[Rfam]
c-di-AMP riboswitch aptamer (ydaO/yuaA leader): a 205-nucleotide RNA sequence from Clostridium sp. BL8.
Taxonomically the source falls in Clostridium (Bacteria, Bacillati, Bacillota, Clostridiaceae).

RNA sequence: AGUUAUGUUAAGCCUAAUGCCAUUUUGGCAAGGGAGGAUUUUUCAUUGGGGUGAAUCCUAAAGAAACUUAUUUUGAAUUUUAAGGCUAAUUAUAAAGUCAGACUAUAAUGGAGGACUUGAUUAACUUUUAAAUUUAAGAAGUCUUUAGGUAGGUUAUCUCUUUCCGAACCCGUCAACUAACUUCCUAGGCAUUAAGAGAGGAGUA
Numbered sequence: 001a002g003u004u005a006u007g008u009u010a011a012g013c014c015u016a017a018u019g020c021c022a023u024u025u026u027g028g029c030a031a032g033g034g035a036g037g038a039u040u041u042u043u044c045a046u047u048g049g050g051g052u053g054a055a056u057c058c059u060a061a062a063g064a065a066a067c068u069u070a071u072u073u074u075g076a077a078u079u080u081u082a083a084g085g086c087u088a089a090u091u092a093u094a095a096a097g098u099c100a101g102a103c104u105a106u107a108a109u110g111g112a113g114g115a116c117u118u119g120a121u122u123a124a125c126u127u128u129u130a131a132a133u134u135u136a137a138g139a140a141g142u143c144u145u146u147a148g149g150u151a152g153g154u155u156a157u158c159u160c161u162u163u164c165c166g167a168a169c170c171c172g173u174c175a176a177c178u179a180a181c182u183u184c185c186u187a188g189g190c191a192u193u194a195a196g197a198g199a200g201g202a203g204u205a
Base pairs, nucleotide, nucleotide: 012190013189014188018030019029020028031186032185033184034183035182036181041048049171050170051169057149058148059147060146061145062144063143064142152165153164